[Rfam]
RNA sequence: GGGCAGUGAUGACCAGAAUUUCUCGAUGCUUAAACUUCUGUGCAGAAGAUUUGUGCUGAUAUACAUGGUUUGUGCGUGUCUGAGCCCA
Number, nucleotide and partner (000 for none) at each position: 001g087002g086003g085004c084005a000006g000007u000008g000009a000010u000011g000012a000013c000014c000015a000016g000017a000018a000019u000020u000021u000022c000023u000024c000025g000026a000027u000028g000029c000030u000031u000032a000033a000034a000035c000036u000037u000038c000039u000040g000041u000042g000043c000044a000045g000046a000047a000048g000049a000050u000051u000052u000053g000054u000055g000056c000057u000058g000059a000060u000061a000062u000063a000064c000065a000066u000067g000068g000069u000070u000071u000072g000073u000074g000075c000076g000077u000078g000079u000080c000081u000082g000083a000084g004085c003086c002087c001088a000